[Rfam]
RNA sequence: AGUAUAAGUGCACUGGCUAAAAAGCGUAACAUCCUGUUACAACGCAAGUACUUGCACGUCAUGUGCG
Numbered sequence: 001a002g003u004a005u006a007a008g009u010g011c012a013c014u015g016g017c018u019a020a021a022a023a024g025c026g027u028a029a030c031a032u033c034c035u036g037u038u039a040c041a042a043c044g045c046a047a048g049u050a051c052u053u054g055c056a057c058g059u060c061a062u063g064u065g066c067g
Base pairs, nucleotide, nucleotide: 012049013048014047016045017044026040027039028038029037030036053067054066055065056064057063

The record is a 67-nucleotide RNA from Scopulibacillus darangshiensis, which matches "Bacillaceae-1 RNA" in Rfam.
The family has 95 seed sequences and 5,721 matches in Rfam 15.1.
Lineage of the source: Bacteria > Bacillati > Bacillota > Caryophanales > Scopulibacillus.